[Rfam]
The family of this 71-nucleotide RNA from Neisseria weaveri is "tRNA". Rfam classes the family as a transfer RNA. The base pairs follow the family's consensus structure, which is taken from published work.

RNA sequence: GGCGGGAUAGCAAAGUGGUUAUGCAGCGGCCUGCAAAGCCGUCUACGCCGGUUCGAUUCCGACUCCCGCCU
Numbered sequence: 001g002g003c004g005g006g007a008u009a010g011c012a013a014a015g016u017g018g019u020u021a022u023g024c025a026g027c028g029g030c031c032u033g034c035a036a037a038g039c040c041g042u043c044u045a046c047g048c049c050g051g052u053u054c055g056a057u058u059c060c061g062a063c064u065c066c067c068g069c070c071u
Stems, first nucleotide, its partner, number of pairs: 001070007010024003026042005047063001049061003